[Rfam]
RNA: Fluoride riboswitch aptamer (crcB RNA motif)
Nucleotides: 068
Stems, first nucleotide, its partner, number of pairs: 010025004016059006036049004
Number, partner (000 for none) and nucleotide at each position: 001000g002000a003000u004000g005000g006000a007000u008000g009000a010025g011024g012023u013022g014000a015000u016059g017058g018057g019056g020055u021054c022013c023012a024011c025010c026000u027000c028000a029000a030000u031000u032000a033000a034000c035000c036049g037048c038047u039046c040000g041000u042000g043000u044000a045000c046039g047038a048037g049036c050000u051000g052000a053000u054021g055020a056019c057018u058017c059016c060000u061000a062000c063000u064000a065000a066000u067000c068000u